[Rfam]
RNA: c-di-GMP-I riboswitch aptamer
Organism: Bacillus sp. AFS040349
Nucleotides: 084
Stems, first nucleotide, its partner, number of pairs: 012037002017032006040078004045074003048069003055063003
Number, partner (000 for none) and nucleotide at each position: 001000u002000c003000a004000g005000u006000u007000c008000a009000a010000g011000g012037g013036c014000a015000a016000a017032c018031c019030u020029a021028u022027u023000g024000a025000a026000a027022a028021a029020u030019a031018g032017g033000g034000a035000c036013g037012c038000a039000a040078a041077g042076u043075c044000a045074c046073a047072g048069g049068u050067c051000u052000a053000a054000a055063g056062u057061u058000u059000a060000a061057a062056a063055c064000u065000a066000u067050g068049a069048u070000g071000g072047c073046u074045g075043g076042a077041c078040u079000g080000c081000c082000u083000g084000g